This 144-nucleotide sequence from Streptococcus hillyeri belongs to the Rfam family "PyrR binding site". A reference for the family is Bonner et al. (2001), "Molecular recognition of pyr mRNA by the Bacillus subtilis attenuation regulatory protein PyrR", Nucleic Acids Res. From the family's description: This family represents the PyrR binding site and terminator structure. This RNA structure is found upstream of a variety of genes involved in pyrimidine biosynthesis and transport. The alignment also includes a portion of the antiterminator structure. The match comes from Rfam's covariance-model search (57 bits).
[Rfam]
RNA sequence: UUAACCUUUAAGUCAAUCCAGAGAGGUUGGCAAGGUGACCUUUCUGCGGAUUGGUCGUACGACAAAGAAAAAGAGCUAAAGCUAGUGUCGCUUUAGGUCUAUUAUGGCGUAAACCUUGUCUCUCUGGGACAGGGUUUUUAUUGU
Numbered sequence: 001u002u003a004a005c006c007u008u009u010a011a012g013u014c015a016a017u018c019c020a021g022a023g024a025g026g027u028u029g030g031c032a033a034g035g036u037g038a039c040c041u042u043u044c045u046g047c048g049g050a051u052u053g054g055u056c057g058u059a060c061g062a063c064a065a066a067g068a069a070a071a072a073g074a075g076c077u078a079a080a081g082c083u084a085g086u087g088u089c090g091c092u093u094u095a096g097g098u099c100u101a102u103u104a105u106g107g108c109g110u111a112a113a114c115c116u117u118g119u120c121u122c123u124c125u126g127g128g129a130c131a132g133g134g135u136u137u138u139u140a141u142u143g144u
Stems, first nucleotide, its partner, number of pairs: 004036005013030006069103002072100003076096007109139001111137012